Small nucleolar RNA snR191: a 247-nucleotide RNA sequence from Aspergillus novofumigatus. By type it is an H/ACA-box small nucleolar RNA. Taxonomically the source falls in Aspergillus novofumigatus (Eukaryota, Pezizomycotina, Eurotiales, Aspergillaceae). The family is grouped with related families in Rfam's "SNORA74 clan". Rfam links the family to the GO terms RNA processing and nucleolus. A search with the family's covariance model found it, with a score of 48 bits. The literature on the family includes a 2003 paper in RNA by Badis et al., "A snoRNA that guides the two most conserved pseudouridine modifications within rRNA confers a growth advantage in yeast". Pairs were carried over by alignment from the consensus structure, which was predicted with WAR.

[Rfam]
RNA sequence: UGCCAUUGCUAAGUCAAGUCUUCUUCCUGCGACUUUGUGUCGUGCUUUUCUCCAUGGAAGUUUGUCUGUUACAGCUCUGGCAGAUUGACGCUGGCCCGUGCCGAAUUUCAUUCUGAAGCUAGGCUGACCAGUUUUCGUUUUGAAGACUGGUCGUAAAGGGCUAAGCUGUGUUCUGUUUGUGAGUUGAGUGCUGCUUCUGCCUUUUGGCGGCUUCGUAGCAGUCCUCUUAGUAACAUUUCACACAUCA
Numbered sequence: 001u002g003c004c005a006u007u008g009c010u011a012a013g014u015c016a017a018g019u020c021u022u023c024u025u026c027c028u029g030c031g032a033c034u035u036u037g038u039g040u041c042g043u044g045c046u047u048u049u050c051u052c053c054a055u056g057g058a059a060g061u062u063u064g065u066c067u068g069u070u071a072c073a074g075c076u077c078u079g080g081c082a083g084a085u086u087g088a089c090g091c092u093g094g095c096c097c098g099u100g101c102c103g104a105a106u107u108u109c110a111u112u113c114u115g116a117a118g119c120u121a122g123g124c125u126g127a128c129c130a131g132u133u134u135u136c137g138u139u140u141u142g143a144a145g146a147c148u149g150g151u152c153g154u155a156a157a158g159g160g161c162u163a164a165g166c167u168g169u170g171u172u173c174u175g176u177u178u179g180u181g182a183g184u185u186g187a188g189u190g191c192u193g194c195u196u197c198u199g200c201c202u203u204u205u206g207g208c209g210g211c212u213u214c215g216u217a218g219c220a221g222u223c224c225u226c227u228u229a230g231u232a233a234c235a236u237u238u239c240a241c242a243c244a245u246c247a
Stems, first nucleotide, its partner, number of pairs: 003080003017067002020064001023060005029043005091165002094161004100124003104120001106118004126152002131147007168241003174235003186226003192220004197210005